[Rfam]
RNA sequence: UUGACUAUCAAAUGAUAAUCGUUAUUAUUAGCUUCAACUGAUCGCGAGAUCAGCCGGUAAGCUGCAAGAGCAGUUGGCCCCAAUCGGGCGGCGGUUCUUCAGACUAUCUCCUCAUCAGGCUAAUCACGGUUUUAGACCCGGCACCCGCCGGGUCUUUUUUUG
Numbered sequence: 001u002u003g004a005c006u007a008u009c010a011a012a013u014g015a016u017a018a019u020c021g022u023u024a025u026u027a028u029u030a031g032c033u034u035c036a037a038c039u040g041a042u043c044g045c046g047a048g049a050u051c052a053g054c055c056g057g058u059a060a061g062c063u064g065c066a067a068g069a070g071c072a073g074u075u076g077g078c079c080c081c082a083a084u085c086g087g088g089c090g091g092c093g094g095u096u097c098u099u100c101a102g103a104c105u106a107u108c109u110c111c112u113c114a115u116c117a118g119g120c121u122a123a124u125c126a127c128g129g130u131u132u133u134a135g136a137c138c139c140g141g142c143a144c145c146c147g148c149c150g151g152g153u154c155u156u157u158u159u160u161u162g
Stems, first nucleotide, its partner, number of pairs: 035056001038053006062102003066099004071093001110119003135154008
PrrF RNA: a 162-nucleotide sequence from Pseudomonas flexibilis. The base pairs follow the family's consensus structure, which is taken from published work. Gene Ontology term of the family: sRNA-mediated gene silencing. PrrF RNA is a small RNA involved in iron homeostasis and is found exclusively in Pseudomonas species. A reference for the family is Wilderman et al. (2004), "Identification of tandem duplicate regulatory small RNAs in Pseudomonas aeruginosa involved in iron homeostasis", Proc Natl Acad Sci U S A. By type it is a small RNA. It scores 134 bits against the family's covariance model.